About this RNA
Rfam assigns this 62-nucleotide RNA sequence from Bodo saltans to the family "Trypanosomatid snoRNA TB10Cs3H1".
RNA sequence: AGCAGUGUCGCUAUGCGUCUUCGCCGACUGUGCGGAGCAACGGUACGAAACACAUGCGAGAG
Numbered sequence: 001a002g003c004a005g006u007g008u009c010g011c012u013a014u015g016c017g018u019c020u021u022c023g024c025c026g027a028c029u030g031u032g033c034g035g036a037g038c039a040a041c042g043g044u045a046c047g048a049a050a051c052a053c054a055u056g057c058g059a060g061a062g
Stems, first nucleotide, its partner, number of pairs: 002057003005053003012045003016042003020036005
Its family is annotated with nucleolus and RNA processing in the Gene Ontology. For this family Rfam cites "A genome-wide analysis of C/D and H/ACA-like small nucleolar RNAs in Trypanosoma brucei reveals a trypanosome-specific pattern of rRNA modification" (Liang et al., RNA, 2005). The family's RNA type in Rfam is H/ACA-box small nucleolar RNA. NCBI's taxonomy places the organism under Eukaryota, Discoba, Euglenozoa, Eubodonida, Bodo. A search with the family's covariance model found it, with a score of 77 bits.